[Rfam]
RNA: ALIL pseudoknot
Organism: Paenochrobactrum gallinarii
RNA sequence: GACUUAUUUUCCCAAGCGGAGCACGAUCGUCUGUACCGCAAACGAUUGCUUUCAUUGAAGAUCAUCGUUCUUCUUUCGGGGGCGAGCCGAUUUGUAAAGUACUGCCGAUUGCCCCG
Number, nucleotide and partner (000 for none) at each position: 001g000002a000003c000004u000005u000006a000007u000008u000009u000010u000011c000012c000013c000014a000015a000016g031017c029018g028019g027020a000021g000022c000023a000024c000025g000026a000027u019028c018029g017030u000031c016032u000033g000034u000035a000036c000037c000038g000039c000040a000041a000042a000043c000044g000045a000046u000047u000048g000049c000050u000051u000052u000053c000054a000055u000056u000057g000058a000059a000060g000061a000062u000063c000064a000065u000066c000067g000068u000069u000070c000071u000072u000073c000074u000075u000076u000077c116078g115079g114080g113081g112082g000083c000084g000085a000086g000087c000088c111089g110090a000091u108092u107093u000094g105095u104096a103097a000098a000099g000100u000101a000102c000103u096104g095105c094106c000107g092108a091109u000110u089111g088112c081113c080114c079115c078116g077